Background:
The record is an 85-nucleotide sequence from Anaerosacchariphilus polymeriproducens, which matches "ZMP/ZTP riboswitch aptamer (pfl RNA motif)" in Rfam.

RNA sequence: AUUUAAUCAUGUAACUGGCGGAUAAUAUGAAGAAUCAUAUGGGGAGCAUGAUUAUAAAAAAUUAUCGACCGCCUGGGUAGGUUCA
Numbered sequence: 001a002u003u004u005a006a007u008c009a010u011g012u013a014a015c016u017g018g019c020g021g022a023u024a025a026u027a028u029g030a031a032g033a034a035u036c037a038u039a040u041g042g043g044g045a046g047c048a049u050g051a052u053u054a055u056a057a058a059a060a061a062u063u064a065u066c067g068a069c070c071g072c073c074u075g076g077g078u079a080g081g082u083u084c085a
Stems, first nucleotide, its partner, number of pairs: 004054009015043002017073005027038004062080005
The family has 185 seed sequences and 3,295 matches in Rfam 15.1. The base pairs follow the family's consensus structure, which is taken from published work. NCBI's taxonomy places the organism under Bacteria, Bacillota, Lachnospirales, Lachnospiraceae, Anaerosacchariphilus.